[Rfam]
RNA: transfer-messenger RNA
Nucleotides: 349
Base pairs, nucleotide, nucleotide: 001345002344003343004342005341006340007339020318021317022316023315024314025313028311029310033305034304035303036302038301039300040299043293044292045291046290047289048066049065050064051063052062054078055077056076057075058074059073110128111127112126113125114124115123116122129168130167131166132165135162136161137160138159142155143154147182148181149180150179151178152177185212186211187210197226198225199224200223201222202221230268231267232266234264235263236262242255243254244253247284248283251280252279322338323337324336325335326334
Number, partner (000 for none) and nucleotide at each position: 001345g002344g003343g004342g005341g006340u007339g008000a009000c010000c011000c012000g013000g014000u015000u016000u017000c018000g019000a020318c021317a022316g023315g024314g025313g026000a027000a028311c029310u030000g031000a032000a033305g034304g035303u036302g037000a038301u039300g040299u041000u042000g043293c044292g045291u046290g047289u048066c049065g050064a051063g052062g053000u054078g055077c056076c057075g058074u059073u060000g061000g062052c063051c064050u065049c066048g067000u068000a069000a070000a071000c072000a073059a074058a075057c076056g077055g078054c079000a080000a081000a082000g083000c084000c085000a086000u087000u088000u089000a090000a091000c092000u093000g094000g095000c096000a097000a098000c099000c100000a101000g102000a103000a104000c105000u106000a107000c108000g109000c110128u111127c112126u113125c114124g115123c116122u117000g118000c119000u120000u121000a122116a123115g124114u125113g126112a127111g128110a129168u130167g131166a132165c133000g134000a135162c136161c137160g138159u139000g140000c141000a142155g143154c144000c145000c146000g147182g148181c149180c150179u151178u152177u153000g154143g155142c156000g157000u158000c159138g160137c161136g162135g163000a164000a165132g166131u167130c168129a169000c170000u171000a172000a173000a174000a175000a176000a177152g178151a179150a180149g181148g182147c183000u184000a185212g186211c187210c188000c189000a190000g191000g192000c193000g194000a195000u196000u197226c198225u199224c200223c201222a202221u203000a204000g205000c206000c207000g208000a209000c210187g211186g212185c213000g214000a215000a216000a217000c218000u219000u220000u221202a222201u223200g224199g225198a226197g227000c228000u229000a230268c231267g232266g233000c234264c235263u236262g237000c238000g239000a240000g241000a242255a243254c244253c245000u246000g247284c248283c249000c250000a251280c252279u253244g254243g255242u256000g257000a258000g259000c260000g261000c262236c263235g264234g265000c266232c267231c268230g269000a270000c271000a272000a273000u274000c275000a276000a277000a278000c279252a280251g281000u282000g283248g284247g285000a286000u287000a288000c289047a290046c291045a292044c293043g294000u295000a296000g297000a298000c299040g300039c301038a302036c303035g304034c305033u306000g307000g308000a309000c310029g311028g312000a313025c314024c315023u316022u317021u318020g319000g320000a321000c322338g323337g324336c325335g326334g327000u328000u329000c330000g331000a332000c333000u334326c335325c336324g337323c338322c339007c340006a341005c342004c343003u344002c345001c346000a347000c348000c349000a